[Rfam]
RNA sequence: UUACUGGACGCUUUAGCUAUUGAACUGUUUCAUCACCAGAGAGUUACUAAACAGUUCAAUAGCUAAAGCGUCCAGUAAU
Numbered sequence: 001u002u003a004c005u006g007g008a009c010g011c012u013u014u015a016g017c018u019a020u021u022g023a024a025c026u027g028u029u030u031c032a033u034c035a036c037c038a039g040a041g042a043g044u045u046a047c048u049a050a051a052c053a054g055u056u057c058a059a060u061a062g063c064u065a066a067a068g069c070g071u072c073c074a075g076u077a078a079u
Base pairs, nucleotide, nucleotide: 001078002077003076004075005074006073011068012067013066014065015064016063017062018061019060020059021058022057023056024055025054026053027052028051029040030039
Rfam assigns this 79-nucleotide RNA sequence from Plutella xylostella to the family "mir-8517 microRNA precursor family". The source organism's lineage runs through Eukaryota, Ecdysozoa, Pancrustacea, Plutellidae and Plutella. The base pairs follow the family's consensus structure, which was predicted with RNAalifold.